[Rfam]
RNA: MIR480 microRNA precursor family
Organism: Populus deltoides
RNA sequence: UAAUCCGGUAAUCUGAUAAAUCCUAAUGUAGCUAUGACAAAUUCAUAUCUAACUGCUCAAAAUCAUCAUUAUUGCAAGUCCCACUAUAUCAUUUUACUUUGAUGAAUUAAGACCUUGCAUUGUGAUGGAUGGUCCUAUUGAUU
Dot-bracket structure: ...((.(..(...(.((..((...(((..((.(..............................................................................).))...)))...))..)).)...).).))..